[Rfam]
The family of this 98-nucleotide RNA sequence from Acidobacterium capsulatum is "Bacterial small signal recognition particle RNA". Clan: SRP clan. The family's RNA type in Rfam is non-coding RNA gene. For this family Rfam cites "SRPDB: Signal Recognition Particle Database" (Rosenblad et al., Nucleic Acids Res, 2003).
RNA sequence: UGCCGGGUCCUACGCGGCGCAACCCCGCCAACCCCGCCAGGUCCGGAAGGAAGCAACGGUAACGGGUAUGUGCGCGCGCAGUGGGUCACCCGGUACUU
Numbered sequence: 001u002g003c004c005g006g007g008u009c010c011u012a013c014g015c016g017g018c019g020c021a022a023c024c025c026c027g028c029c030a031a032c033c034c035c036g037c038c039a040g041g042u043c044c045g046g047a048a049g050g051a052a053g054c055a056a057c058g059g060u061a062a063c064g065g066g067u068a069u070g071u072g073c074g075c076g077c078g079c080a081g082u083g084g085g086u087c088a089c090c091c092g093g094u095a096c097u098u
Stems, first nucleotide, its partner, number of pairs: 004092005009085005015076001017075005024066004034059003042051003